[Rfam]
RNA sequence: CUCUGGUGCGGGGCUUGGCUCACUUGUGAACACUGCUGUAUUUUAUCCUGUUCACAGUGGCUAAGUUCUGCACUCGGG
Number, nucleotide and partner (000 for none) at each position: 001c000002u000003c000004u000005g000006g000007u000008g000009c000010g000011g068012g067013g066014c065015u064016u063017g062018g061019c060020u059021c000022a000023c000024u000025u000026g055027u054028g053029a052030a051031c050032a049033c000034u000035g000036c000037u000038g000039u000040a000041u000042u000043u000044u000045a000046u000047c000048c000049u032050g031051u030052u029053c028054a027055c026056a000057g000058u000059g020060g019061c018062u017063a016064a015065g014066u013067u012068c011069u000070g000071c000072a000073c000074u000075c000076g000077g000078g000
A member of the RNA family "mir-27 microRNA precursor family" from Eptatretus burgeri, 78 nucleotides long.
For this family Rfam cites "The developmental miRNA profiles of zebrafish as determined by small RNA cloning" (Chen et al., Genes Dev, 2005).
Gene Ontology terms of the family: RISC complex and miRNA-mediated post-transcriptional gene silencing.